[Rfam]
RNA sequence: GAGGAAAGUCCAGCCUCCAACCCUUACAAGAACCCCGUAAGGGGUAGGGAUAGAAUCCCUGGCUACUACACAGAAACGAAGCCCUAAUACUAGAUAGAUGAUUGGACCUACUAGCAAGUAAUUGCUAGUAGUACGAUAAUGAUGAAAGUAUUAGGGCUUGAAACGGUAGACCUCUUGGGAGCAAGUUGAAGGGGGAUGAGCAAAGGGUUGACUCCUUAUAGUACGCUUAGUCGAAUCCCCUCAGUACAAAAGCUGGCUUA
Dot-bracket structure: .....(((.(((((((((.[[[[[[.((((((((((....)))))(((((.....)))))((...((((...........(((((((((((...........((...........................)).............)))))))))))........)))).)))))))))))...((...(((((........]]]]]]...)))))......))...........................)))))))).